[Rfam]
RNA sequence: UUCGGCAGCGGCUAGGGUUCCGGUUUCCACCGUUACGGUUGGAAGCGCUGGUCCGAGAGCCGCAACCCGGUCGGUGAACAGCGGCCGGGUACACGGCGGGACAAAAGCCCGGGAGAC
Numbered sequence: 001u002u003c004g005g006c007a008g009c010g011g012c013u014a015g016g017g018u019u020c021c022g023g024u025u026u027c028c029a030c031c032g033u034u035a036c037g038g039u040u041g042g043a044a045g046c047g048c049u050g051g052u053c054c055g056a057g058a059g060c061c062g063c064a065a066c067c068c069g070g071u072c073g074g075u076g077a078a079c080a081g082c083g084g085c086c087g088g089g090u091a092c093a094c095g096g097c098g099g100g101a102c103a104a105a106a107g108c109c110c111g112g113g114a115g116a117c
Base pairs, nucleotide, nucleotide: 008063009062010061011060012059015054016053020051021050022048023046024045025044026043027042028041065090066089067088068087069086070085071084072083092112094115098110099109100108
RNA: Guanidine-I riboswitch aptamer
Organism: Parvibaculum sedimenti